Rfam assigns this 257-nucleotide sequence from Streptomyces griseoflavus to the family "Streptomyces sRNA 4677". Rfam's curators write: Located in the intergenic region between anti-sigma factor SCO4677 gene and a putative regulatory protein gene SCO4676. scr4677 expression requires the SCO4677 activity and scr4677 sRNA itself seem to affect the levels of the SCO4676-associated transcripts.

RNA sequence: UGUUCCGGUGCCGUCGGCCGUCUUUUCCAAGGACCACGGGAGAGAAAGAAACCCCACCAAGCCCCACCCCUCCCGCCCACGGCGCACGCUCACUCGCGUGGGUGAACAUCACCAAUUGAGCUGGAUAUGUGAUGGGUUGCCUGCCCUACGCUCAGCGCAGCACGACACGGCACAACAACCCCAGACAUGCAACGGCCCCCGCCGGGACUGGCAUCCCAAUGCGAGGGCCUGACCACCAAGGAAGCACUACCUUCCCG
Numbered sequence: 001u002g003u004u005c006c007g008g009u010g011c012c013g014u015c016g017g018c019c020g021u022c023u024u025u026u027c028c029a030a031g032g033a034c035c036a037c038g039g040g041a042g043a044g045a046a047a048g049a050a051a052c053c054c055c056a057c058c059a060a061g062c063c064c065c066a067c068c069c070c071u072c073c074c075g076c077c078c079a080c081g082g083c084g085c086a087c088g089c090u091c092a093c094u095c096g097c098g099u100g101g102g103u104g105a106a107c108a109u110c111a112c113c114a115a116u117u118g119a120g121c122u123g124g125a126u127a128u129g130u131g132a133u134g135g136g137u138u139g140c141c142u143g144c145c146c147u148a149c150g151c152u153c154a155g156c157g158c159a160g161c162a163c164g165a166c167a168c169g170g171c172a173c174a175a176c177a178a179c180c181c182c183a184g185a186c187a188u189g190c191a192a193c194g195g196c197c198c199c200c201g202c203c204g205g206g207a208c209u210g211g212c213a214u215c216c217c218a219a220u221g222c223g224a225g226g227g228c229c230u231g232a233c234c235a236c237c238a239a240g241g242a243a244g245c246a247c248u249a250c251c252u253u254c255c256c257g
Stems, first nucleotide, its partner, number of pairs: 007237004016077003020074001090105006120156005194229005200223003204217004240255005